[Rfam]
RNA sequence: AUUCAUAAAUACUGGCUCACUCAUAUAAUUGCGGGAAUACGGCUCGCGAGUCUCUACCGAUCGACCGUAAAUCGAUCGACUAUGAGUGGCAAUGUCGAUAUU
Numbered sequence: 001a002u003u004c005a006u007a008a009a010u011a012c013u014g015g016c017u018c019a020c021u022c023a024u025a026u027a028a029u030u031g032c033g034g035g036a037a038u039a040c041g042g043c044u045c046g047c048g049a050g051u052c053u054c055u056a057c058c059g060a061u062c063g064a065c066c067g068u069a070a071a072u073c074g075a076u077c078g079a080c081u082a083u084g085a086g087u088g089g090c091a092a093u094g095u096c097g098a099u100a101u102u
Base pairs, nucleotide, nucleotide: 018088019087020086021085022084023083024082025081029049030048031047032046033045034044035043058078059077060076061075062074063073064072